The record is a 374-nucleotide RNA sequence from delta proteobacterium NaphS2, which matches "Bacterial RNase P class A" in Rfam. By type it is a ribozyme. It scores 319 bits against the family's covariance model. Rfam's curators write: Ribonuclease P (RNase P) is a ubiquitous endoribonuclease, found in archaea, bacteria and eukarya as well as chloroplasts and mitochondria.
[Rfam]
RNA sequence: CGAAGUAAAACAAAUGGCCGCCGCCCAUGCUCCCGGCAUGGGGGGAGGAAAGUCCGGGCUCCAUAGGACAAAGCGCUGGGUAACGCCCAGUCCCGGCAACGGGAAGGAAAGUGCAACAGAAAGGAUACCGCCAGGCACCUGGUAAGGGUGAAAAGGUGAGGUAAGAGCUCACCAGCUCCGCCGGUAACGACGGAGGCUUUGUAAACCCCGCCUGGAGCAAGACCAAAUAGGGGAACGUUAAGGGUGGUCCGCUCGAGUUCCCGGGUAGGUCGCUCGAUCUCGCCGGCAACGGCGAGGCUAGAUGAAUGGUCAUUAUUUCGAAAGCGGGCAACCCUUUCGAAAAACAGAACCCGGCUUACGGAUUGCUUCGACAU
Number, nucleotide and partner (000 for none) at each position: 001c370002g369003a368004a367005g366006u365007a000008a364009a363010a000011c361012a000013a314014a313015u312016g311017g310018c309019c308020g000021c045022c044023g000024c042025c041026c040027a039028u038029g037030c000031u000032c000033c000034c000035g000036g000037c029038a028039u027040g026041g025042g024043g000044g022045g021046a000047g000048g000049a000050a357051a356052g355053u000054c354055c353056g352057g351058g350059c217060u216061c215062c214063a000064u000065a000066g250067g249068a248069c247070a000071a213072a000073g211074c210075g209076c090077u089078g088079g087080g086081u000082a000083a000084c000085g000086c080087c079088c078089a077090g076091u105092c103093c102094c101095g100096g000097c000098a000099a000100c095101g094102g093103g092104a000105a091106g208107g207108a000109a000110a000111g206112u205113g202114c201115a200116a000117c000118a000119g000120a000121a000122a000123g000124g000125a000126u000127a000128c147129c146130g143131c142132c141133a140134g139135g000136c000137a000138c000139c134140u133141g132142g131143u130144a000145a000146g129147g128148g000149u000150g000151a000152a000153a000154a000155g173156g172157u171158g170159a169160g168161g000162u000163a000164a000165g000166a000167g000168c160169u159170c158171a157172c156173c155174a000175g197176c195177u194178c193179c192180g191181c000182c189183g188184g000185u000186a000187a000188c183189g182190a000191c180192g179193g178194a177195g176196g000197c175198u000199u000200u115201g114202u113203a000204a000205a112206c111207c107208c106209c075210g074211c073212c000213u071214g062215g061216a060217g059218c000219a000220a000221g271222a270223c269224c268225a000226a000227a000228u000229a000230g000231g262232g261233g260234a259235a258236c257237g000238u000239u000240a000241a000242g254243g253244g252245u251246g000247g069248u068249c067250c066251g245252c244253u243254c242255g000256a000257g236258u235259u234260c233261c232262c231263g000264g000265g000266u000267a000268g224269g223270u222271c221272g000273c000274u000275c000276g000277a000278u297279c296280u295281c294282g293283c292284c291285g290286g000287c000288a000289a000290c285291g284292g283293c282294g281295a280296g279297g278298c000299u000300a000301g000302a000303u000304g000305a000306a000307u000308g019309g018310u017311c016312a015313u014314u013315a000316u000317u000318u000319c000320g000321a000322a000323a000324g000325c000326g000327g000328g000329c000330a000331a000332c000333c000334c000335u000336u000337u000338c000339g000340a000341a000342a000343a000344a000345c000346a000347g000348a000349a000350c058351c057352c056353g055354g054355c052356u051357u050358a000359c000360g000361g011362a000363u009364u008365g006366c005367u004368u003369c002370g001371a000372c000373a000374u000